[Rfam]
RNA sequence: UAUAUUUGCGCCUCUGAUUUAACAAAAAUUGGUUACAUAAGAAUUAUUUACAAAAAUAUUGGCAUG
Numbered sequence: 001u002a003u004a005u006u007u008g009c010g011c012c013u014c015u016g017a018u019u020u021a022a023c024a025a026a027a028a029u030u031g032g033u034u035a036c037a038u039a040a041g042a043a044u045u046a047u048u049u050a051c052a053a054a055a056a057u058a059u060u061g062g063c064a065u066g
Stems, first nucleotide, its partner, number of pairs: 014032006

Shown here is a 66-nucleotide sequence, a member of the family "S15-Flavobacteria ribosomal protein leader". Its Rfam clan is "Ribosomal Protein S15 Leader clan". The base pairs follow the family's consensus structure, which is taken from published work. For this family Rfam cites "Discovery of 20 novel ribosomal leader candidates in bacteria and archaea" (Eckert and Weinberg, BMC Microbiol, 2020). The sequence is in the family's curated seed alignment.